RNA: Small nucleolar RNA Z107/R87
RNA sequence: AAUUACGGUGACGACUUCGAAAAUUCAAGCUCAACAGACCGGAAUGCAGGGAUUUCUCUCUCUUUGAGAAGCCUUUGCGUGUCGAUUACCCCGCUGAACUGAGUAAUU
Numbered sequence: 001a002a003u004u005a006c007g008g009u010g011a012c013g014a015c016u017u018c019g020a021a022a023a024u025u026c027a028a029g030c031u032c033a034a035c036a037g038a039c040c041g042g043a044a045u046g047c048a049g050g051g052a053u054u055u056c057u058c059u060c061u062c063u064u065u066g067a068g069a070a071g072c073c074u075u076u077g078c079g080u081g082u083c084g085a086u087u088a089c090c091c092c093g094c095u096g097a098a099c100u101g102a103g104u105a106a107u108u
Base pairs, nucleotide, nucleotide: 001108002107003106004105005104006103